[Rfam]
RNA sequence: GUAUUCUAUGAGGUGCAAGCUUUAAAUGCAACUUAAGUACUAAUUUAUUUUGUCAGACCCCCAUGUAAAUCGUGCAUUACUGCUAGCCAACAUGAAUAUUAUAUA
Numbered sequence: 001g002u003a004u005u006c007u008a009u010g011a012g013g014u015g016c017a018a019g020c021u022u023u024a025a026a027u028g029c030a031a032c033u034u035a036a037g038u039a040c041u042a043a044u045u046u047a048u049u050u051u052g053u054c055a056g057a058c059c060c061c062c063a064u065g066u067a068a069a070u071c072g073u074g075c076a077u078u079a080c081u082g083c084u085a086g087c088c089a090a091c092a093u094g095a096a097u098a099u100u101a102u103a104u105a
Stems, first nucleotide, its partner, number of pairs: 005096001007094004012088002015083002018081002022036004027031001037058002042053001063077005